[Rfam]
RNA sequence: CUGUGAGAGGGAUGAUGUAUUACCAUAGAGCACUUAGGAUGCUGGCGUUCCUUGAUUCAGCUUCCGAGAUGGAUAUCAGGG
Numbered sequence: 001c002u003g004u005g006a007g008a009g010g011g012a013u014g015a016u017g018u019a020u021u022a023c024c025a026u027a028g029a030g031c032a033c034u035u036a037g038g039a040u041g042c043u044g045g046c047g048u049u050c051c052u053u054g055a056u057u058c059a060g061c062u063u064c065c066g067a068g069a070u071g072g073a074u075a076u077c078a079g080g081g
Base pairs, nucleotide, nucleotide: 001081002080004078005077006076

Overview:
Rfam assigns this 81-nucleotide RNA from Thalictrum thalictroides to the family "Small nucleolar RNA J33". Lineage of the source: Eukaryota > Euphyllophyta > Ranunculales > Thalictroideae > Thalictrum. Rfam classes the family as a C/D-box small nucleolar RNA. The family has 5 seed sequences and 831 matches in Rfam 15.1. On this family, see Chen et al., Nucleic Acids Res 2003: "The high diversity of snoRNAs in plants: identification and comparative study of 120 snoRNA genes from Oryza sativa".